[Rfam]
RNA sequence: AAUAAGGAUAGAGGUGCAAUAUUAAAUAGUACUCUUACAGAGGUAAGCACUAUGAAGUAAGAGAAAAGGUAAUAUUGCCGAAGUGUACAGUUAAGGCUUUAAGAUUGUAUGCUGGGACUACAUAGAAUAUAUGUAGGACUGUCACAAAUUAUUUUGUGGAGAGCUAUCAUUCAA
Numbered sequence: 001a002a003u004a005a006g007g008a009u010a011g012a013g014g015u016g017c018a019a020u021a022u023u024a025a026a027u028a029g030u031a032c033u034c035u036u037a038c039a040g041a042g043g044u045a046a047g048c049a050c051u052a053u054g055a056a057g058u059a060a061g062a063g064a065a066a067a068g069g070u071a072a073u074a075u076u077g078c079c080g081a082a083g084u085g086u087a088c089a090g091u092u093a094a095g096g097c098u099u100u101a102a103g104a105u106u107g108u109a110u111g112c113u114g115g116g117a118c119u120a121c122a123u124a125g126a127a128u129a130u131a132u133g134u135a136g137g138a139c140u141g142u143c144a145c146a147a148a149u150u151a152u153u154u155u156g157u158g159g160a161g162a163g164c165u166a167u168c169a170u171u172c173a174a
Stems, first nucleotide, its partner, number of pairs: 007168005016078009032063007082113011114140002118136007142159007
Description
The record is a 174-nucleotide RNA from Clostridium niameyense, which matches "Lysine riboswitch aptamer" in Rfam. The base pairs follow the family's consensus structure, which is taken from published work. About the family: Riboswitches are metabolite binding domains within certain messenger RNAs that serve as precision sensors for their corresponding targets. The match comes from Rfam's covariance-model search (131 bits). Rfam links the family to the GO term lysine biosynthetic process.